The family of this 92-nucleotide sequence from Hermetia illucens is "mir-263 microRNA precursor family". A reference for the family is Li et al. (2009), "Direct sequencing and expression analysis of a large number of miRNAs in Aedes aegypti and a multi-species survey of novel mosquito miRNAs", BMC Genomics. The organism belongs to Hermetia, within Eukaryota. The family is grouped with related families in Rfam's "mir-182 clan".
[Rfam]
RNA sequence: CAAGCACAUGAAAUGGCACUGGAAGAAUUCACGGGGUUUUGUGUAACAAUUUAAUACCUCCCGUGUUCUCUUAGUGGCAUCACUAGUGUUGG
Numbered sequence: 001c002a003a004g005c006a007c008a009u010g011a012a013a014u015g016g017c018a019c020u021g022g023a024a025g026a027a028u029u030c031a032c033g034g035g036g037u038u039u040u041g042u043g044u045a046a047c048a049a050u051u052u053a054a055u056a057c058c059u060c061c062c063g064u065g066u067u068c069u070c071u072u073a074g075u076g077g078c079a080u081c082a083c084u085a086g087u088g089u090u091g092g
Stems, first nucleotide, its partner, number of pairs: 003090005010083001013080003017076002020073003023069001025068002030065007

The family has 52 seed sequences and 368 matches in Rfam 15.1.